RNA sequence: UUUUUUGAAGAUCGGGUGUCUGCCAUCUACGUCCGGCAGUUCUCUUUCGCAGCUGCCGGCGGACACCGCACAGACGAUAUUUCGAUUAGUGUGCAAAAGAGCCAGUC
Numbered sequence: 001u002u003u004u005u006u007g008a009a010g011a012u013c014g015g016g017u018g019u020c021u022g023c024c025a026u027c028u029a030c031g032u033c034c035g036g037c038a039g040u041u042c043u044c045u046u047u048c049g050c051a052g053c054u055g056c057c058g059g060c061g062g063a064c065a066c067c068g069c070a071c072a073g074a075c076g077a078u079a080u081u082u083c084g085a086u087u088a089g090u091g092u093g094c095a096a097a098a099g100a101g102c103c104a105g106u107c
Stems, first nucleotide, its partner, number of pairs: 007082003011078003015067006022060003034055004039050002068092004072087002075084001
RNA: IMPDH RNA